[Rfam]
RNA sequence: UAGCAAGCCUCCAGCGUGCUUGAGUCUGCUAUGACCCUUUGCAUUCCUACAGUGCUUUCCAGAAGAGUUUUGAGACAGCUUGACCUUACCCUGCUUCAUUCAGAACAAGGUCAUGGAAAUUUCAGACAAUU
Numbered sequence: 001u002a003g004c005a006a007g008c009c010u011c012c013a014g015c016g017u018g019c020u021u022g023a024g025u026c027u028g029c030u031a032u033g034a035c036c037c038u039u040u041g042c043a044u045u046c047c048u049a050c051a052g053u054g055c056u057u058u059c060c061a062g063a064a065g066a067g068u069u070u071u072g073a074g075a076c077a078g079c080u081u082g083a084c085c086u087u088a089c090c091c092u093g094c095u096u097c098a099u100u101c102a103g104a105a106c107a108a109g110g111u112c113a114u115g116g117a118a119a120u121u122u123c124a125g126a127c128a129a130u131u
Base pairs, nucleotide, nucleotide: 003059005057006056007055008054017043018042019041022037024035025034026033071124072123073122074121075120084110085109086108087107091103092102093101

The record is a 131-nucleotide RNA from Carlito syrichta, which matches "Small nucleolar RNA SNORA9" in Rfam. The match comes from Rfam's covariance-model search (114 bits). The base pairs follow the family's consensus structure, which was predicted with PFOLD. Its Rfam clan is "SNORA9 clan". Gene Ontology terms of the family: nucleolus and RNA processing. By type it is an H/ACA-box small nucleolar RNA. Taxonomically the source falls in Carlito (Eukaryota, Bilateria, Amniota, Theria). Rfam's curators write: ACA9 is a member of the H/ACA class of snoRNA that guide the sites of modification of uridines to pseudouridines.